mir-9058 microRNA precursor family: an 85-nucleotide RNA from Equus asinus. The source organism's lineage runs through Eukaryota, Chordata, Teleostomi, Laurasiatheria and Equus. Its family is annotated with miRNA-mediated post-transcriptional gene silencing and RISC complex in the Gene Ontology.
[Rfam]
Nucleotides: 085
Stems, first nucleotide, its partner, number of pairs: 002084005007074003010070002014068003018064001021061006028055002031053003036049004
Number, partner (000 for none) and nucleotide at each position: 001000g002084u003083g004082g005081c006080u007074g008073c009072c010070g011069g012000a013000u014068g015067g016066g017000u018064g019000c020000u021061c022060u023059c024058u025057a026056c027000u028055a029054g030000u031053g032052c033051u034000g035000u036049g037048c038047a039046g040000a041000g042000g043000c044000u045000g046039c047038u048037g049036u050000g051033a052032g053031c054029c055028u056026g057025u058024a059023g060022g061021g062000u063000u064018u065000c066016c067015c068014c069011c070010u071000a072009g073008g074007c075000u076000a077000u078000g079000g080006a081005g082004c083003u084002g085000g